The family of this 81-nucleotide RNA sequence from Pipistrellus kuhlii is "mir-574 microRNA precursor family".
It scores 89 bits against the family's covariance model.
Lineage of the source: Eukaryota > Opisthokonta > Chordata > Amniota > Pipistrellus.
On this family, see Lui et al., Cancer Res 2007: "Patterns of known and novel small RNAs in human cervical cancer".
Gene Ontology terms of the family: RISC complex and miRNA-mediated post-transcriptional gene silencing.
Pairs were carried over by alignment from the consensus structure, which was predicted with RNAalifold.

RNA sequence: AGGCCCAGAGAAAGAGGCAGGGCCUGAUCCUCAGCCUCCAUGUCAGCUGUUGAUCAGCUGUUGCCUCGCUCUUUCUCUCCA
Dot-bracket structure: .......((((..(((((((.(.((((((..((((..........))))..)))))).).)))))))..))))........